Overview
This 71-nucleotide RNA from Armadillidium nasatum belongs to the Rfam family "mir-1175 microRNA precursor family". Gene Ontology terms of the family: RISC complex and miRNA-mediated post-transcriptional gene silencing. NCBI's taxonomy places the organism under Eukaryota, Eumetazoa, Arthropoda, Crinocheta, Armadillidium.
RNA sequence: AGGAUUAAGUGGAGUAGUGGUCUCUUCACUCAGUUUAGAUCAGUGAGAUUCAACUCCUCCAACUUAGUUCA
Number, nucleotide and partner (000 for none) at each position: 001a000002g000003g000004a000005u000006u000007a065008a064009g063010u061011g060012g059013a058014g057015u000016a000017g055018u053019g000020g000021u000022c000023u048024c047025u000026u046027c045028a044029c043030u042031c000032a000033g000034u000035u000036u000037a000038g000039a000040u000041c000042a030043g029044u028045g027046a026047g024048a023049u000050u000051c000052a000053a018054c000055u017056c000057c014058u013059c012060c011061a010062a000063c009064u008065u007066a000067g000068u000069u000070c000071a000